RNA: mir-7552 microRNA precursor family
Nucleotides: 061
Base pairs, nucleotide, nucleotide: 003056004055005054006053007052008051009050010049012047014045015044016043017042018041019040020039021038024033025032
Number, partner (000 for none) and nucleotide at each position: 001000u002000u003056a004055c005054a006053a007052u008051u009050a010049a011000a012047g013000g014045a015044u016043a017042u018041u019040u020039c021038u022000u023000g024033u025032g026000a027000a028000u029000g030000a031000u032025c033024g034000a035000c036000a037000c038021a039020g040019a041018a042017a043016u044015g045014u046000g047012u048000u049010u050009u051008a052007a053006u054005u055004g056003u057000u058000u059000g060000g061000a